[Rfam]
RNA sequence: CGGAAGAAGCAUUGUUAAGGAACUCGGCAAAAUGACCCCGUAACUUCGGGAGAAGGGGUGCCUCGAAAGAGGCCGCAGAGAAUAGGCUCAAGCAACUGUUUAGCAAAAACACAGGUCUAUGCAAAACCGCAAGGUGAAGUAUAUGGGCUGACGCCUGCCCGGUGCUGGAAGGUUAAGAGGAGAUGUCAGCGCAAGCGAAGCAUUGAAUUUAAGCCCCAGUAAACGGCGGCCGUAACUAUAACGGUCCUAAGGUAGCGAAAUUCCUUGUCGGGUAAGUUCCGACCCGCACGAAAGGCGUAAUGAUUUGAGCACUGUCUCGACAAUGCAUCCG
Numbered sequence: 001c002g003g004a005a006g007a008a009g010c011a012u013u014g015u016u017a018a019g020g021a022a023c024u025c026g027g028c029a030a031a032a033u034g035a036c037c038c039c040g041u042a043a044c045u046u047c048g049g050g051a052g053a054a055g056g057g058g059u060g061c062c063u064c065g066a067a068a069g070a071g072g073c074c075g076c077a078g079a080g081a082a083u084a085g086g087c088u089c090a091a092g093c094a095a096c097u098g099u100u101u102a103g104c105a106a107a108a109a110c111a112c113a114g115g116u117c118u119a120u121g122c123a124a125a126a127c128c129g130c131a132a133g134g135u136g137a138a139g140u141a142u143a144u145g146g147g148c149u150g151a152c153g154c155c156u157g158c159c160c161g162g163u164g165c166u167g168g169a170a171g172g173u174u175a176a177g178a179g180g181a182g183a184u185g186u187c188a189g190c191g192c193a194a195g196c197g198a199a200g201c202a203u204u205g206a207a208u209u210u211a212a213g214c215c216c217c218a219g220u221a222a223a224c225g226g227c228g229g230c231c232g233u234a235a236c237u238a239u240a241a242c243g244g245u246c247c248u249a250a251g252g253u254a255g256c257g258a259a260a261u262u263c264c265u266u267g268u269c270g271g272g273u274a275a276g277u278u279c280c281g282a283c284c285c286g287c288a289c290g291a292a293a294g295g296c297g298u299a300a301u302g303a304u305u306u307g308a309g310c311a312c313u314g315u316c317u318c319g320a321c322a323a324u325g326c327a328u329c330c331g
Base pairs, nucleotide, nucleotide: 001331002330003329004328009326010325011324012323013322014321015320016319018317019316020315035059036058037057038056039055044049060073061072062071063070064069074078086310087309088308089307090306091305092304093302094301097111098110099109114149115148116147117146118145119144120143121142122139126135127134128133152297153296154295155294157227158226159225162224163223164220165219166218167217168216171215172214173213177209178208182204183203184202185201186200189196190195228246229245230244231243232242233241247251257284267283268282269281270280271279272278

Annotation: The record is a 331-nucleotide part of an RNA from Robinsoniella sp. RHS, which matches "Bacterial large subunit ribosomal RNA" in Rfam. The match comes from Rfam's covariance-model search (2837 bits). Lineage of the source: Bacteria > Bacillati > Clostridia > Lachnospiraceae > Robinsoniella. Rfam links the family to the GO terms ribosome and structural constituent of ribosome.